[Rfam]
RNA sequence: GCCAUGGGGUUGCGAUCAUCCCACGAGGCGUCAUGCUGAAGAAUCGCGUCCAGUAACACCGAUCAACGGAGGACGCGUCAUG
Numbered sequence: 001g002c003c004a005u006g007g008g009g010u011u012g013c014g015a016u017c018a019u020c021c022c023a024c025g026a027g028g029c030g031u032c033a034u035g036c037u038g039a040a041g042a043a044u045c046g047c048g049u050c051c052a053g054u055a056a057c058a059c060c061g062a063u064c065a066a067c068g069g070a071g072g073a074c075g076c077g078u079c080a081u082g
Base pairs, nucleotide, nucleotide: 005023006022007021008020009019010018046076047075048074049073050072051071